[Rfam]
RNA sequence: AAUUUUGUUAGGAUAAACAAAAAGUAGUAGAUCUAUUCUACACACAAUAGCUAUCAAUAGGCAAGGUGG
Numbered sequence: 001a002a003u004u005u006u007g008u009u010a011g012g013a014u015a016a017a018c019a020a021a022a023a024g025u026a027g028u029a030g031a032u033c034u035a036u037u038c039u040a041c042a043c044a045c046a047a048u049a050g051c052u053a054u055c056a057a058u059a060g061g062c063a064a065g066g067u068g069g
Stems, first nucleotide, its partner, number of pairs: 003022002006019004043068003051060003
RNA: Plastid-clpP 5UTR RNA